RNA sequence: CCUGUUCCGCAGCCGAACCCUGCCAGCGGAACGACAGGUUCCGUGGUGGCAGGGGCGGAGGACCCAGGGACGGCAGCAGCGUUGUUGAGCUGCCUUGGGGUGAAGCCGCGCCGGUACGGCAUCGGUUGCCACGAAGAUCCCUUCUUCAGGGCCGAUGGCGCAUGGGCGCGGCCGGGUAUUUCUUCUGACCCGAAUCCGACAGCUAACUUCGCAGGCGCGCAGGAGAGGGAAG
Numbered sequence: 001c002c003u004g005u006u007c008c009g010c011a012g013c014c015g016a017a018c019c020c021u022g023c024c025a026g027c028g029g030a031a032c033g034a035c036a037g038g039u040u041c042c043g044u045g046g047u048g049g050c051a052g053g054g055g056c057g058g059a060g061g062a063c064c065c066a067g068g069g070a071c072g073g074c075a076g077c078a079g080c081g082u083u084g085u086u087g088a089g090c091u092g093c094c095u096u097g098g099g100g101u102g103a104a105g106c107c108g109c110g111c112c113g114g115u116a117c118g119g120c121a122u123c124g125g126u127u128g129c130c131a132c133g134a135a136g137a138u139c140c141c142u143u144c145u146u147c148a149g150g151g152c153c154g155a156u157g158g159c160g161c162a163u164g165g166g167c168g169c170g171g172c173c174g175g176g177u178a179u180u181u182c183u184u185c186u187g188a189c190c191c192g193a194a195u196c197c198g199a200c201a202g203c204u205a206a207c208u209u210c211g212c213a214g215g216c217g218c219g220c221a222g223g224a225g226a227g228g229g230a231a232g
Stems, first nucleotide, its partner, number of pairs: 012216003018054008055212006065097005098197003106171007174191004
RNA: c-di-AMP riboswitch aptamer (ydaO/yuaA leader)
Organism: Arthrobacter mobilis